[Rfam]
RNA sequence: AUCGUUCAUCUCUCUAGCAACUUACCUCUGUACUUACCUCUGUAUAGUUAGGCAUCUGGAGAGACGGAAGUAGGGGUUUCCCCGAAGGAACGCGCC
Numbered sequence: 001a002u003c004g005u006u007c008a009u010c011u012c013u014c015u016a017g018c019a020a021c022u023u024a025c026c027u028c029u030g031u032a033c034u035u036a037c038c039u040c041u042g043u044a045u046a047g048u049u050a051g052g053c054a055u056c057u058g059g060a061g062a063g064a065c066g067g068a069a070g071u072a073g074g075g076g077u078u079u080c081c082c083c084g085a086a087g088g089a090a091c092g093c094g095c096c
Stems, first nucleotide, its partner, number of pairs: 003092005009064009067093001073083003

The family of this 96-nucleotide RNA sequence from Cyanothece sp. PCC 7425 is "Glutamine riboswitch aptamer (glnA leader)". The literature on the family includes a 2011 paper in RNA Biol by Ames and Breaker, "Bacterial aptamers that selectively bind glutamine". The sequence is in the family's curated seed alignment. Lineage of the source: Bacteria > Bacillati > Cyanophyceae > Gomontiellales > Cyanothece.